[Rfam]
Overview:
Rfam assigns this 84-nucleotide RNA sequence from Aotus nancymaae to the family "mir-548 microRNA precursor family". It scores 98 bits against the family's covariance model. Rfam links the family to the GO terms RISC complex and miRNA-mediated post-transcriptional gene silencing. NCBI's taxonomy places the organism under Eukaryota, Chordata, Dipnotetrapodomorpha, Primates, Aotus. Pairs were carried over by alignment from the consensus structure, which was predicted with WAR.

RNA sequence: UAUUAGGUUGGUGCAAAAGUAAUUGCUGUUUUUGCCAUUAAAAAUAGUGGCAAAGACAGCAAUUGCUUUUGCACCAACCUAAUA
Numbered sequence: 001u002a003u004u005a006g007g008u009u010g011g012u013g014c015a016a017a018a019g020u021a022a023u024u025g026c027u028g029u030u031u032u033u034g035c036c037a038u039u040a041a042a043a044a045u046a047g048u049g050g051c052a053a054a055g056a057c058a059g060c061a062a063u064u065g066c067u068u069u070u071g072c073a074c075c076a077a078c079c080u081a082a083u084a
Stems, first nucleotide, its partner, number of pairs: 001084040